The record is a 207-nucleotide sequence from Dictyobacter vulcani, which matches "HNH endonuclease-associated RNA and ORF (HEARO) RNA" in Rfam. For this family Rfam cites "Exceptional structured noncoding RNAs revealed by bacterial metagenome analysis" (Weinberg et al., Nature, 2009). Pairs were carried over by alignment from the consensus structure, which is taken from published work. Lineage of the source: Bacteria > Bacillati > Chloroflexota > Ktedonobacteria > Dictyobacter.

[Rfam]
RNA sequence: GUCAGGAACCCCACGCAUGAAUGCGGGGGCUUGCUCCGGUAAGCCCAUACCUGACCAGUCUCAGUCUUAAAUGACUACGUUCGGAGUGAAAUAGUCGGGGUGCUUUCCAGCUCCGACCACUACGGUCAAUGAUUAAACAGGAGUACAGGGUGAAUCCAGUGUCAUUGGCGCUAAACCACUCACGAACCUUGACGAGGAACACAUCAC
Numbered sequence: 001g002u003c004a005g006g007a008a009c010c011c012c013a014c015g016c017a018u019g020a021a022u023g024c025g026g027g028g029g030c031u032u033g034c035u036c037c038g039g040u041a042a043g044c045c046c047a048u049a050c051c052u053g054a055c056c057a058g059u060c061u062c063a064g065u066c067u068u069a070a071a072u073g074a075c076u077a078c079g080u081u082c083g084g085a086g087u088g089a090a091a092u093a094g095u096c097g098g099g100g101u102g103c104u105u106u107c108c109a110g111c112u113c114c115g116a117c118c119a120c121u122a123c124g125g126u127c128a129a130u131g132a133u134u135a136a137a138c139a140g141g142a143g144u145a146c147a148g149g150g151u152g153a154a155u156c157c158a159g160u161g162u163c164a165u166u167g168g169c170g171c172u173a174a175a176c177c178a179c180u181c182a183c184g185a186a187c188c189u190u191g192a193c194g195a196g197g198a199a200c201a202c203a204u205c206a207c
Stems, first nucleotide, its partner, number of pairs: 001055006008048001010029002012026001016023002030043004058193003063076004079187005084181005094117008104201001106198003125169009137160002140157003144153001